[Rfam]
RNA: PyrR binding site
RNA sequence: AUGUCCUUUGAAAUUGGUCCUGUGAGGCUGAUAAAGGAAGCCAUAAGGGUGCGGCGGCAUGAACCGCAUCGUUGCCAUGCAAAGAAAGCUUUCUUAUGCCUUGCAUAAGAAAGCUUUUUGU
Numbered sequence: 001a002u003g004u005c006c007u008u009u010g011a012a013a014u015u016g017g018u019c020c021u022g023u024g025a026g027g028c029u030g031a032u033a034a035a036g037g038a039a040g041c042c043a044u045a046a047g048g049g050u051g052c053g054g055c056g057g058c059a060u061g062a063a064c065c066g067c068a069u070c071g072u073u074g075c076c077a078u079g080c081a082a083a084g085a086a087a088g089c090u091u092u093c094u095u096a097u098g099c100c101u102u103g104c105a106u107a108a109g110a111a112a113g114c115u116u117u118u119u120g121u
Stems, first nucleotide, its partner, number of pairs: 004038006014031006051072003054067004086116014
Dot-bracket structure: ...((((((....((((((......)))))).))))))............(((((((......))))..))).............((((((((((((((...)))))))))))))).....